[Rfam]
RNA sequence: GACUCUCUGCUCUGCAGGUGAGGUUUUAUUUGCCCCAGCGGAAUAUUUUUCAAAACGGGUUGAACAAGGAUGUGUUGUGUGCCAGCCCAACCUGGAUUGGGACGCCUGAUACGCAGCCUGUGAUUCCCACUUAUUUAGGACUCGCUUGGAGGCCUGAAAACCCACGGCAGCAGUGGAGAGUUU
Number, nucleotide and partner (000 for none) at each position: 001g000002a181003c180004u179005c178006u177007c176008u175009g174010c173011u172012c170013u169014g168015c167016a000017g000018g165019u164020g000021a000022g000023g000024u000025u000026u000027u000028a000029u000030u000031u000032g153033c152034c151035c149036c148037a147038g145039c144040g143041g000042a000043a000044u000045a000046u000047u000048u000049u000050u000051c000052a000053a000054a000055a000056c000057g128058g127059g126060u000061u000062g000063a000064a121065c120066a119067a000068g118069g117070a000071u115072g114073u113074g112075u111076u000077g000078u000079g000080u000081g105082c104083c000084a000085g000086c101087c100088c099089a098090a097091c000092c000093u000094g000095g000096a000097u090098u089099g088100g087101g086102a000103c000104g082105c081106c000107u000108g000109a000110u000111a075112c074113g073114c072115a071116g000117c069118c068119u066120g065121u064122g000123a000124u000125u000126c059127c058128c057129a000130c000131u000132u000133a000134u000135u000136u000137a000138g000139g000140a000141c000142u000143c040144g039145c038146u000147u037148g036149g035150a000151g034152g033153c032154c000155u000156g000157a000158a000159a000160a000161c000162c000163c000164a019165c018166g000167g015168c014169a013170g012171c000172a011173g010174u009175g008176g007177a006178g005179a004180g003181u002182u000183u000

The family of this 183-nucleotide RNA from Syntrophotalea carbinolica is "6S / SsrS RNA". It scores 88 bits against the family's covariance model. From the family's description: E. coli 6S RNA was the first non coding RNA to be sequenced, but its function was unknown until recently. It consists of 184 nucleotides that fold into an extended hairpin structure with a large single-stranded internal bulge. By type it is a non-coding RNA gene. NCBI's taxonomy places the organism under Bacteria, Pseudomonadati, Syntrophotaleaceae, Syntrophotalea, Syntrophotalea carbinolica.